[Rfam]
RNA sequence: GGUGCAAUUCGGUAGGUGAGACUACCAUAGGGAUACGGAUGACUACCGCAAAGAAGUGGAGACACUUCGCGUUGGUUAGCAGUUGCUGUCGAGAAGGCGGCGACUAACGUCAUUUCAUCGCCCUAUGAUGUUAAAGCUUGGACGAUGAAUGAGAAA
Numbered sequence: 001g002g003u004g005c006a007a008u009u010c011g012g013u014a015g016g017u018g019a020g021a022c023u024a025c026c027a028u029a030g031g032g033a034u035a036c037g038g039a040u041g042a043c044u045a046c047c048g049c050a051a052a053g054a055a056g057u058g059g060a061g062a063c064a065c066u067u068c069g070c071g072u073u074g075g076u077u078a079g080c081a082g083u084u085g086c087u088g089u090c091g092a093g094a095a096g097g098c099g100g101c102g103a104c105u106a107a108c109g110u111c112a113u114u115u116c117a118u119c120g121c122c123c124u125a126u127g128a129u130g131u132u133a134a135a136g137c138u139u140g141g142a143c144g145a146u147g148a149a150u151g152a153g154a155a156a
Stems, first nucleotide, its partner, number of pairs: 007150004011143001013095001015138003020132003026127007039113005045076004055066004082104004088098003
Dot-bracket structure: ......(((((.[.(((..(((...(((((((......(((((.((((......((((....))))......)))).....((((..(((....])))..))))....))))).......)))))))..)))...)))....)...))))......